[Rfam]
RNA: bZIP non canonical Hac1/Xbp1 intron
Organism: Colletotrichum chlorophyti
RNA sequence: GCAUUCCUCCGACUUGACACAACGUCCUGCAGCGAUGUUGUGCGACCUGCAGUGUCAUCUGUCGGAGGAGC
Numbered sequence: 001g002c003a004u005u006c007c008u009c010c011g012a013c014u015u016g017a018c019a020c021a022a023c024g025u026c027c028u029g030c031a032g033c034g035a036u037g038u039u040g041u042g043c044g045a046c047c048u049g050c051a052g053u054g055u056c057a058u059c060u061g062u063c064g065g066a067g068g069a070g071c
Base pairs, nucleotide, nucleotide: 004070005069006068007067009065010064011063012062013061021039022038023037024036025035026034044056045055046054